[Rfam]
RNA: Pseudomonas sRNA P14
Organism: Metapseudomonas resinovorans
RNA sequence: CUGACGGUUUUUUGACCAGCGACCCUGUUGUUUGCGUGUGAAUUAGCCGGCAAGCUGAAAAAAAUGUGCUUGGCUUGCGCAAGGUCAGUUUACUUACUACAAGUUAUGGGUAGUAUGUACGCCGGCUAAUUUCCCAAGCUCGGGGAA
Numbered sequence: 001c002u003g004a005c006g007g008u009u010u011u012u013u014g015a016c017c018a019g020c021g022a023c024c025c026u027g028u029u030g031u032u033u034g035c036g037u038g039u040g041a042a043u044u045a046g047c048c049g050g051c052a053a054g055c056u057g058a059a060a061a062a063a064a065u066g067u068g069c070u071u072g073g074c075u076u077g078c079g080c081a082a083g084g085u086c087a088g089u090u091u092a093c094u095u096a097c098u099a100c101a102a103g104u105u106a107u108g109g110g111u112a113g114u115a116u117g118u119a120c121g122c123c124g125g126c127u128a129a130u131u132u133c134c135c136a137a138g139c140u141c142g143g144g145g146a147a
Stems, first nucleotide, its partner, number of pairs: 040080001045075003051072005084126003088122002091119003095115006102107001130147006